A member of the RNA family "L13-Bacteroidia ribosomal protein leader", 71 nucleotides long. It is one of the family's seed sequences. Pairs were carried over by alignment from the consensus structure, which is taken from published work.
[Rfam]
RNA sequence: AUAGGCAUUAAACGCCUAUUAAUCUGCAUGUUAAUAGUCUGCUCUUUGGCCGGACAGACGGUUAGUGAGUG
Numbered sequence: 001a002u003a004g005g006c007a008u009u010a011a012a013c014g015c016c017u018a019u020u021a022a023u024c025u026g027c028a029u030g031u032u033a034a035u036a037g038u039c040u041g042c043u044c045u046u047u048g049g050c051c052g053g054a055c056a057g058a059c060g061g062u063u064a065g066u067g068a069g070u071g
Stems, first nucleotide, its partner, number of pairs: 001019006031065005037059005043054003